Rfam assigns this 192-nucleotide RNA from Gordonia jinhuaensis to the family "Actinobacteria sRNA Ms_IGR-5". A search with the family's covariance model found it, with a score of 108 bits. Rfam classes the family as a small RNA.
[Rfam]
RNA sequence: ACACGAGGAAGGAGGUGGUCUGAAGUUGUAUGACAAACGGACACGUGAGGUGACCAUCCGCUGACGGCGGAUCGCCGCAAGAUUCGGCCUCGUUCGCCAGUCGGCGAAUACCAGAUGGCCACCCGACCCCCGCAUCCGACCAGUCCGGUCGACAGUGCCCGCCUCACGCGGGUGGUGCGGGGGUCGUCCCGU
Numbered sequence: 001a002c003a004c005g006a007g008g009a010a011g012g013a014g015g016u017g018g019u020c021u022g023a024a025g026u027u028g029u030a031u032g033a034c035a036a037a038c039g040g041a042c043a044c045g046u047g048a049g050g051u052g053a054c055c056a057u058c059c060g061c062u063g064a065c066g067g068c069g070g071a072u073c074g075c076c077g078c079a080a081g082a083u084u085c086g087g088c089c090u091c092g093u094u095c096g097c098c099a100g101u102c103g104g105c106g107a108a109u110a111c112c113a114g115a116u117g118g119c120c121a122c123c124c125g126a127c128c129c130c131c132g133c134a135u136c137c138g139a140c141c142a143g144u145c146c147g148g149u150c151g152a153c154a155g156u157g158c159c160c161g162c163c164u165c166a167c168g169c170g171g172g173u174g175g176u177g178c179g180g181g182g183g184u185c186g187u188c189c190c191g192u
Base pairs, nucleotide, nucleotide: 014058015057016056017055018054019053059106060105061104062103063102064101065100067097068096069095070094073092074091124186125185126184127183128182129181130180131179132178133177134176135175136174137151138150139149140148
The organism belongs to Gordonia, within Bacteria.